[Rfam]
RNA sequence: AAAGCAGUUUUAUAGGGUCCCGCAGCUUAAACAGCUGGUCUGCACCGAGAUAAAACGCACAGGAUACUGUGUUCACGGAAGGAUAAAAGCCUGGGAGAU
Numbered sequence: 001a002a003a004g005c006a007g008u009u010u011u012a013u014a015g016g017g018u019c020c021c022g023c024a025g026c027u028u029a030a031a032c033a034g035c036u037g038g039u040c041u042g043c044a045c046c047g048a049g050a051u052a053a054a055a056c057g058c059a060c061a062g063g064a065u066a067c068u069g070u071g072u073u074c075a076c077g078g079a080a081g082g083a084u085a086a087a088a089g090c091c092u093g094g095g096a097g098a099u
Stems, first nucleotide, its partner, number of pairs: 007056006015046002021042001022040001023037005057072006074094001076097001080092003
RNA: Guanidine-I riboswitch aptamer